[Rfam]
RNA sequence: CUCCUUAAAAGGAGAAUGACCGUAUAAUUUAUACGCUCCCCCUGCAUAUUAUGCGGGAGGAGCGUUUUU
Numbered sequence: 001c002u003c004c005u006u007a008a009a010a011g012g013a014g015a016a017u018g019a020c021c022g023u024a025u026a027a028u029u030u031a032u033a034c035g036c037u038c039c040c041c042c043u044g045c046a047u048a049u050u051a052u053g054c055g056g057g058a059g060g061a062g063c064g065u066u067u068u069u
Base pairs, nucleotide, nucleotide: 001014002013003012004011033065034064035063036062037061038060039059041057042056043055044054045053046052

The record is a 69-nucleotide sequence from Viridibacillus arenosi, which matches "S. aureus tsr31 small RNA" in Rfam.
A search with the family's covariance model found it, with a score of 58 bits.
The family's consensus secondary structure was predicted with RNAfold.
NCBI's taxonomy places the organism under Bacteria, Bacillota, Caryophanales, Viridibacillus, Viridibacillus arenosi.